sroC RNA: a 157-nucleotide RNA from Pluralibacter gergoviae.
A search with the family's covariance model found it, with a score of 122 bits.
RNA sequence: ACUAAUUAAAACAACGAUGGGCGGGACUCCUGCCCUCCCGACUGCGGGGAAAAACGGACAGACUAUACGGCGGGUGGCCGUUCCCCACCGGCCGCGAAAAUAAGUUUUCCUUAGCAGUCUUCGAGGGUAGCGCUGCUACCCUUUUUUUCGGAGUUUA
Numbered sequence: 001a002c003u004a005a006u007u008a009a010a011a012c013a014a015c016g017a018u019g020g021g022c023g024g025g026a027c028u029c030c031u032g033c034c035c036u037c038c039c040g041a042c043u044g045c046g047g048g049g050a051a052a053a054a055c056g057g058a059c060a061g062a063c064u065a066u067a068c069g070g071c072g073g074g075u076g077g078c079c080g081u082u083c084c085c086c087a088c089c090g091g092c093c094g095c096g097a098a099a100a101u102a103a104g105u106u107u108u109c110c111u112u113a114g115c116a117g118u119c120u121u122c123g124a125g126g127g128u129a130g131c132g133c134u135g136c137u138a139c140c141c142u143u144u145u146u147u148u149c150g151g152a153g154u155u156u157a
Stems, first nucleotide, its partner, number of pairs: 013155002019035004023030002036126002039123002041118005047112002059096001069093003073089005
Annotation: Its family is annotated with regulation of RNA stability and RNA binding in the Gene Ontology. A reference for the family is Vogel et al. (2003), "RNomics in Escherichia coli detects new sRNA species and indicates parallel transcriptional output in bacteria", Nucleic Acids Res. The source organism's lineage runs through Bacteria, Pseudomonadati, Pseudomonadota, Gammaproteobacteria and Pluralibacter. This family consists of a number of bacterial sroC RNA genes of around 160 bases in length. sroC is found in several Enterobacterial species. It base-pairs with GcvB. This interaction triggers the degradation of GcvB by RNase E, alleviating the GcvB-mediated mRNA repression of other amino acid-related transport and metabolic genes.